Shown here is a 176-nucleotide sequence from Orthohepacivirus hominis, a member of the family "Hepatitis C virus (HCV) cis-acting replication element (CRE)".
RNA sequence: CCAUUGCCUCAAGCGGGCCUCUUGGAUUUAUCCAACUGGUUCACUGUAGGCGCAGGCGGGAACGACAUUUAUCACAGCGUGUCACGUGCCCGAUCCCGCCAUUUACUCCUUGGCCUACUCCUACUCACAAUAGGGGUAGGCAUCUUCCUGUUACCAGCUCGAUAGGCUGGUAAUUU
Dot-bracket structure: .....((((..((..((((..(((((....)))))..))))..))..))))...(((((((..((((............))))..........)))))))............(((((((((((.......)))))))))))........((((((((.(.....).))))))))..
Numbered sequence: 001c002c003a004u005u006g007c008c009u010c011a012a013g014c015g016g017g018c019c020u021c022u023u024g025g026a027u028u029u030a031u032c033c034a035a036c037u038g039g040u041u042c043a044c045u046g047u048a049g050g051c052g053c054a055g056g057c058g059g060g061a062a063c064g065a066c067a068u069u070u071a072u073c074a075c076a077g078c079g080u081g082u083c084a085c086g087u088g089c090c091c092g093a094u095c096c097c098g099c100c101a102u103u104u105a106c107u108c109c110u111u112g113g114c115c116u117a118c119u120c121c122u123a124c125u126c127a128c129a130a131u132a133g134g135g136g137u138a139g140g141c142a143u144c145u146u147c148c149u150g151u152u153a154c155c156a157g158c159u160c161g162a163u164a165g166g167c168u169g170g171u172a173a174u175u176u
Stems, first nucleotide, its partner, number of pairs: 006051004012045002016041004022035005055100007064083004113141011150174008159165001
A reference for the family is Pirakitikulr et al. (2016), "The Coding Region of the HCV Genome Contains a Network of Regulatory RNA Structures", Mol Cell.